[Rfam]
Overview:
Rfam assigns this 168-nucleotide RNA sequence from Marvinbryantia formatexigens to the family "Clostridiales-1 RNA". The base pairs follow the family's consensus structure, which is taken from published work. A search with the family's covariance model found it, with a score of 139 bits. By type it is a small RNA.
RNA sequence: AGAUGCCAGGGUCAAAAGGUCUAAGCCCACAUGAGCCAGCUCUAUAGUGGGCGUAAGACCUUGGGACCCGCCCCGAUAUGAGCAUAAAAGUGGGAUGUAUAUCCCACGAUAUGCGAAUAGCGGGUAGGAUUGUGGGAGUGCGAAGCACGUAACAAUCCGUAGGCAUCA
Numbered sequence: 001a002g003a004u005g006c007c008a009g010g011g012u013c014a015a016a017a018g019g020u021c022u023a024a025g026c027c028c029a030c031a032u033g034a035g036c037c038a039g040c041u042c043u044a045u046a047g048u049g050g051g052c053g054u055a056a057g058a059c060c061u062u063g064g065g066a067c068c069c070g071c072c073c074c075g076a077u078a079u080g081a082g083c084a085u086a087a088a089a090g091u092g093g094g095a096u097g098u099a100u101a102u103c104c105c106a107c108g109a110u111a112u113g114c115g116a117a118u119a120g121c122g123g124g125u126a127g128g129a130u131u132g133u134g135g136g137a138g139u140g141c142g143a144a145g146c147a148c149g150u151a152a153c154a155a156u157c158c159g160u161a162g163g164c165a166u167c168a
Stems, first nucleotide, its partner, number of pairs: 002167006010068004016062007024054001026051005033042003072124004077119003082114004090107007127158007138148004